[Rfam]
RNA sequence: GGCGGUAGUCCCGCCGAAGCAAGCGACCAAGAGCGGGCUUGAAACCACUUCAUGUGGCGUAUGUUAAGAGCAUAGGUCAUGAGCGAUGAAGAAAAGUCAGAAUAGAUCUGGCAGGU
Numbered sequence: 001g002g003c004g005g006u007a008g009u010c011c012c013g014c015c016g017a018a019g020c021a022a023g024c025g026a027c028c029a030a031g032a033g034c035g036g037g038c039u040u041g042a043a044a045c046c047a048c049u050u051c052a053u054g055u056g057g058c059g060u061a062u063g064u065u066a067a068g069a070g071c072a073u074a075g076g077u078c079a080u081g082a083g084c085g086a087u088g089a090a091g092a093a094a095a096g097u098c099a100g101a102a103u104a105g106a107u108c109u110g111g112c113a114g115g116u
Stems, first nucleotide, its partner, number of pairs: 001015005017040004023034002046115001048091006054080002057077002061073004096112006

This 116-nucleotide sequence from Legionella antarctica belongs to the Rfam family "Group II catalytic intron D1-D4-2". Gene Ontology term of the family: Group II intron splicing. The family has 144 seed sequences and 1,231 matches in Rfam 15.1. Group II introns are found in rRNA, tRNA and mRNA of organelles in fungi, plants and protists, and also in mRNA in bacteria. Lineage of the source: Bacteria > Pseudomonadati > Gammaproteobacteria > Legionellales > Legionella.